[Rfam]
RNA: Vault RNA
Organism: Merluccius polli
RNA sequence: GCGCUGGUUUAGCUCAGUGGUUACUUCCUACAACCGACUGUAUGUCUCCCCUCCCGGGGAUCGAACCACGGGCGCUGUCCAGCGUUUUU
Numbered sequence: 001g002c003g004c005u006g007g008u009u010u011a012g013c014u015c016a017g018u019g020g021u022u023a024c025u026u027c028c029u030a031c032a033a034c035c036g037a038c039u040g041u042a043u044g045u046c047u048c049c050c051c052u053c054c055c056g057g058g059g060a061u062c063g064a065a066c067c068a069c070g071g072g073c074g075c076u077g078u079c080c081a082g083c084g085u086u087u088u089u
Stems, first nucleotide, its partner, number of pairs: 002084006012073004017069004025065003